This 121-nucleotide RNA sequence from Nisaea acidiphila belongs to the Rfam family "Rhizobiales sRNA Atu_C8".
The literature on the family includes a 2012 paper in RNA Biol by Wilms et al., "Deep sequencing uncovers numerous small RNAs on all four replicons of the plant pathogen Agrobacterium tumefaciens".
It scores 87 bits against the family's covariance model.
RNA sequence: GAUCGGUAUCGAGACAAUCGUUGUCGUAGGAAGGCGCGUGGGUAAGGCGGUUUAGCCGCCGGGCGAAAGCACCCAUGCGCGGUAAGCAAGGCCCCAUCCGGGGCCUUUUUCGUGUCCGCCA
Numbered sequence: 001g002a003u004c005g006g007u008a009u010c011g012a013g014a015c016a017a018u019c020g021u022u023g024u025c026g027u028a029g030g031a032a033g034g035c036g037c038g039u040g041g042g043u044a045a046g047g048c049g050g051u052u053u054a055g056c057c058g059c060c061g062g063g064c065g066a067a068a069g070c071a072c073c074c075a076u077g078c079g080c081g082g083u084a085a086g087c088a089a090g091g092c093c094c095c096a097u098c099c100g101g102g103g104c105c106u107u108u109u110u111c112g113u114g115u116c117c118g119c120c121a
Stems, first nucleotide, its partner, number of pairs: 007028001009026001029117003034080009046060005063070002086107001089106007
Dot-bracket structure: ......(.(................).)(((..(((((((((...(((((.....)))))..((....)).))))))))).....(..(((((((....)))))))).......)))....